[Rfam]
RNA sequence: AUGAUGGUAGUGAGAGAUACCUUCUAGGUAGCCGAAGAAGCAAUAUAUAGUUUGUCAAAUCUAUAUAGAAUCUUUCAGGCAAAAGGAUCGCUAUCUGAUG
Numbered sequence: 001a002u003g004a005u006g007g008u009a010g011u012g013a014g015a016g017a018u019a020c021c022u023u024c025u026a027g028g029u030a031g032c033c034g035a036a037g038a039a040g041c042a043a044u045a046u047a048u049a050g051u052u053u054g055u056c057a058a059a060u061c062u063a064u065a066u067a068g069a070a071u072c073u074u075u076c077a078g079g080c081a082a083a084a085g086g087a088u089c090g091c092u093a094u095c096u097g098a099u100g
Stems, first nucleotide, its partner, number of pairs: 006095008019029004031080003034076002038074003044067007
Annotation
The family of this 100-nucleotide sequence from Maledivibacter halophilus is "Glycine riboswitch aptamer". The match comes from Rfam's covariance-model search (53 bits). Taxonomically the source falls in Maledivibacter (Bacteria, Clostridia, Peptostreptococcales, Caminicellaceae). Rfam links the family to the GO term glycine biosynthetic process.